[Rfam]
RNA sequence: CACAAAGCAAUGAAGGAAACAAGUAGUAUCUGUGAAAAGCAACAGAGAGCAGCCGGCAGGUGAGAGGCGCAGACCGGAAGCAGAUAUGAAUACAUUCCGGAGCAGCACUCCGAACAGGAAAGUACCCAAGUAGGCAGUGACGGAUUGGUACACGUUAUCGUACCCGGAGUAUAUUUGUACUUCAUAAGAUAAGCAGUGUGAGCUGUUUAUGAAUAAAGGUGGUAACACGUAAGCAUCAGCUUUCGUCCUUUUA
Numbered sequence: 001c002a003c004a005a006a007g008c009a010a011u012g013a014a015g016g017a018a019a020c021a022a023g024u025a026g027u028a029u030c031u032g033u034g035a036a037a038a039g040c041a042a043c044a045g046a047g048a049g050c051a052g053c054c055g056g057c058a059g060g061u062g063a064g065a066g067g068c069g070c071a072g073a074c075c076g077g078a079a080g081c082a083g084a085u086a087u088g089a090a091u092a093c094a095u096u097c098c099g100g101a102g103c104a105g106c107a108c109u110c111c112g113a114a115c116a117g118g119a120a121a122g123u124a125c126c127c128a129a130g131u132a133g134g135c136a137g138u139g140a141c142g143g144a145u146u147g148g149u150a151c152a153c154g155u156u157a158u159c160g161u162a163c164c165c166g167g168a169g170u171a172u173a174u175u176u177g178u179a180c181u182u183c184a185u186a187a188g189a190u191a192a193g194c195a196g197u198g199u200g201a202g203c204u205g206u207u208u209a210u211g212a213a214u215a216a217a218g219g220u221g222g223u224a225a226c227a228c229g230u231a232a233g234c235a236u237c238a239g240c241u242u243u244c245g246u247c248c249u250u251u252u253a
Stems, first nucleotide, its partner, number of pairs: 007103002015098004026087006039075001049070002052068003106139004110134002141154002189210007216250004227246003231242003

Rfam assigns this 253-nucleotide RNA from Eubacterium sp. CAG:38 to the family "T-box leader". It is annotated as a cis-regulatory leader.